[Rfam]
M-box riboswitch aptamer (ykoK leader): a 158-nucleotide sequence from endosymbiont 'TC1' of Trimyema compressum. The organism belongs to Bacillota, within Bacteria. M-box riboswitch, also know as ykoK leader is described as a metaloregulatory RNA that sense divalent metals and function as a genetic control element of genes related to divalent metal transport in bacteria. It was first reported upstream of the B.subtilis ykoK gene and genes with related functions in other bacteria. Gene Ontology terms of the family: response to magnesium ion and regulation of gene expression.
RNA sequence: UAAAUAAGUCGGUAGGUGAGGUUACCGCAUAGAUAAGGAUCGUUGCCGCGGAGUAGUGGAGACACUAUGAGUUGGUUAGCAGGCUAUGUCGAUUCAAGGUAUAAUCUAAUACAAUUUCAUUGCUCUGCGAAGCUUAAGCUUGAACGGUGGUAUACAUU
Number, nucleotide and partner (000 for none) at each position: 001u000002a000003a000004a000005u154006a153007a000008g151009u150010c149011g145012g000013u097014a000015g140016g139017u138018g000019a000020g134021g133022u132023u000024a000025c000026c129027g128028c127029a126030u000031a124032g123033a000034u000035a000036a000037g000038g000039a115040u114041c000042g112043u111044u000045g000046c074047c000048g072049c071050g000051g000052a000053g000054u000055a066056g065057u064058g063059g000060a000061g000062a000063c058064a057065c056066u055067a000068u000069g000070a000071g049072u048073u000074g046075g000076u000077u000078a000079g000080c000081a000082g106083g105084c000085u103086a000087u000088g100089u099090c098091g000092a000093u000094u000095c000096a000097a013098g090099g089100u088101a000102u000103a085104a000105u083106c082107u000108a000109a000110u000111a043112c042113a000114a040115u039116u000117u000118c000119a000120u000121u000122g000123c032124u031125c000126u029127g028128c027129g026130a000131a000132g022133c021134u020135u000136a000137a000138g017139c016140u015141u000142g000143a000144a000145c011146g000147g000148u000149g010150g009151u008152a000153u006154a005155c000156a000157u000158u000